[Rfam]
Nucleotides: 265
Base pairs, nucleotide, nucleotide: 001159002158003157004156005155006154007153008152011145012144013143014142017045018044019043020042021041022040023039047102048101049100050099051098055096056095057094062089063088064087065086066085067082068081069080070079071078072077106140107139108138113133114132115131116130117129162176163175164174165173166172182260183259184258185257186202187201188200189199190198207253208252209251210249211248212247213246214245216242217241223236224235225234226233227232
Number, partner (000 for none) and nucleotide at each position: 001159g002158g003157a004156a005155a006154c007153u008152u009000g010000a011145g012144a013143g014142g015000a016000g017045u018044u019043g020042u021041c022040c023039a024000u025000a026000g027000u028000a029000c030000g031000a032000g033000a034000g035000g036000g037000c038000c039023u040022g041021g042020a043019u044018g045017a046000a047102c048101g049100a050099a051098c052000c053000u054000c055096c056095u057094g058000u059000a060000u061000a062089u063088c064087u065086g066085u067082u068081g069080u070079c071078c072077u073000g074000c075000c076000a077072a078071g079070g080069g081068c082067a083000u084000a085066g086065c087064a088063g089062a090000u091000u092000a093000g094057c095056g096055g097000u098051g099050u100049u101048c102047g103000g104000u105000a106140g107139g108138g109000a110000u111000a112000a113133a114132c115131g116130c117129u118000g119000a120000a121000a122000g123000c124000a125000u126000a127000u128000a129117a130116g131115c132114g133113u134000g135000a136000a137000a138108c139107c140106c141000g142014c143013c144012u145011c146000a147000a148000g149000a150000u151000a152008a153007g154006g155005u156004u157003u158002c159001c160000c161000u162176a163175g164174u165173a166172c167000a168000u169000u170000a171000a172166g173165u174164a175163c176162u177000c178000a179000u180000a181000a182260g183259a184258c185257c186202c187201c188200c189199g190198g191000a192000a193000g194000a195000c196000u197000a198190c199189c200188g201187g202186g203000u204000u205000g206000a207253u208252a209251g210249g211248c212247u213246g214245g215000a216242g217241g218000u219000g220000u221000a222000a223236g224235c225234a226233c227232a228000g229000u230000a231000a232227u233226g234225u235224g236223u237000u238000c239000a240000g241217c242216u243000a244000a245214c246213c247212a248211g249210u250000a251209c252208u253207a254000a255000u256000a257185g258184g259183u260182c261000g262000u263000g264000a265000g